[Rfam]
RNA sequence: CUCCAGCGCAUCGGGGAGUAGUCACCGCCACCCAGCGGAAGCGCGUCAACAUACUCGUGCAGCAGCACGUGGCGCGUUUGGCCGGAUUUAACCGGCUC
Numbered sequence: 001c002u003c004c005a006g007c008g009c010a011u012c013g014g015g016g017a018g019u020a021g022u023c024a025c026c027g028c029c030a031c032c033c034a035g036c037g038g039a040a041g042c043g044c045g046u047c048a049a050c051a052u053a054c055u056c057g058u059g060c061a062g063c064a065g066c067a068c069g070u071g072g073c074g075c076g077u078u079u080g081g082c083c084g085g086a087u088u089u090a091a092c093c094g095g096c097u098c
Stems, first nucleotide, its partner, number of pairs: 026037003039079010056069005
Dot-bracket structure: .........................(((......))).((((((((((.......(((((....)))))))))))))))...................
RNA: Manganese Mn2+ riboswitch aptamer (yybP-ykoY)